Pseudomonas sRNA P26: a 67-nucleotide sequence from Psychromonas algarum.
RNA sequence: AAGUUAGUUUUUCUAACUUAAUAGCUAUGCAAAUAGCUUUGGCUGGUGAUUAUUUAAUCACCGGCCU
Numbered sequence: 001a002a003g004u005u006a007g008u009u010u011u012u013c014u015a016a017c018u019u020a021a022u023a024g025c026u027a028u029g030c031a032a033a034u035a036g037c038u039u040u041g042g043c044u045g046g047u048g049a050u051u052a053u054u055u056a057a058u059c060a061c062c063g064g065c066c067u
Base pairs, nucleotide, nucleotide: 015038017036018035022029023028041066042065043064044063045062046061047060048059049058050057
It scores 41 bits against the family's covariance model. This small RNA (sRNA) was computationally identified in the genome of the opportunistic pathogen Pseudomonas aeruginosa and its expression verified by northern blot analysis. The base pairs follow the family's consensus structure, which was predicted with RNAalifold. For this family Rfam cites "Identification of 17 Pseudomonas aeruginosa sRNAs and prediction of sRNA-encoding genes in 10 diverse pathogens using the bioinformatic tool sRNAPredict2" (Livny et al., Nucleic Acids Res, 2006).